[Rfam]
RNA sequence: UAUCUUUGCGGCUGUGUUUAAAGUAACACGUACAUAAAAAUCAUUAAAUAAUAUUGGAAUG
Numbered sequence: 001u002a003u004c005u006u007u008g009c010g011g012c013u014g015u016g017u018u019u020a021a022a023g024u025a026a027c028a029c030g031u032a033c034a035u036a037a038a039a040a041u042c043a044u045u046a047a048a049u050a051a052u053a054u055u056g057g058a059a060u061g
Base pairs, nucleotide, nucleotide: 014029015028016027017026018025

Background: Rfam assigns this 61-nucleotide RNA sequence from Brumimicrobium oceani to the family "S15-Flavobacteria ribosomal protein leader". The family's RNA type in Rfam is cis-regulatory leader. The family is grouped with related families in Rfam's "Ribosomal Protein S15 Leader clan". For this family Rfam cites "Discovery of 20 novel ribosomal leader candidates in bacteria and archaea" (Eckert and Weinberg, BMC Microbiol, 2020). NCBI's taxonomy places the organism under Bacteria, Pseudomonadati, Bacteroidota, Flavobacteriales, Brumimicrobium. The match comes from Rfam's covariance-model search (65 bits).